mir-9223 microRNA precursor family: a 75-nucleotide sequence from Myotis lucifugus.

[Rfam]
RNA sequence: GGUGGUUCUUGGGUGACGCACCCAGGAAUCGGGCUCCCUCCUCUCUAGUUCUGGGUGUGUCACCAGAGAACUGCU
Number, nucleotide and partner (000 for none) at each position: 001g000002g074003u073004g000005g071006u070007u069008c068009u067010u066011g000012g064013g063014u062015g061016a060017c059018g000019c057020a056021c055022c054023c053024a000025g052026g051027a050028a049029u048030c000031g046032g045033g044034c000035u000036c000037c000038c000039u000040c000041c000042u000043c000044u033045c032046u031047a000048g029049u028050u027051c026052u025053g023054g022055g021056u020057g019058u000059g017060u016061c015062a014063c013064c012065a000066g010067a009068g008069a007070a006071c005072u000073g003074c002075u000
A search with the family's covariance model found it, with a score of 82 bits. The organism belongs to Myotis, within Eukaryota.